[Rfam]
Nucleotides: 149
Stems, first nucleotide, its partner, number of pairs: 004146007017029003031129002033119002035065004060117002068095002099115005121132003
Number, partner (000 for none) and nucleotide at each position: 001000a002000g003000a004146c005145g006144u007143u008142c009141u010140c011000a012000g013000g014000g015000c016000g017029g018028g019027g020000u021000g022000c023000a024000a025000u026000u027019c028018c029017c030000c031129a032128c033119c034118g035065g036064c037063g038062g039000u040000a041000a042000a043000u044000g045000c046000g047000a048000g049000a050000c051000c052000a053000c054000g055000c056000a057000u058000a059000a060117g061116c062038c063037c064036g065035c066000g067000a068095g069094c070000g071000c072000c073000c074000g075000u076000c077000c078000g079000a080000u081000u082000g083000c084000g085000g086000c087000g088000g089000g090000g091000u092000c093000a094069g095068c096000a097000g098000a099115u100114c101113c102112g103111g104000u105000g106000c107000g108000a109000u110000u111103c112102c113101g114100g115099g116061g117060c118034c119033g120000a121132c122131g123130g124000u125000a126000u127000a128032g129031u130123c131122c132121g133000g134000a135000u136000g137000a138000g139000a140010g141009a142008g143007a144006a145005c146004g147000c148000a149000u
This 149-nucleotide RNA from Gemmobacter megaterium belongs to the Rfam family "FMN riboswitch aptamer (RFN element)". About the family: The RFN element is a highly conserved domain that is found frequently in the 5'-untranslated regions of prokaryotic mRNAs that encode for flavin mononucleotide (FMN) biosynthesis and transport proteins. Gene Ontology term of the family: FMN binding. A search with the family's covariance model found it, with a score of 119 bits.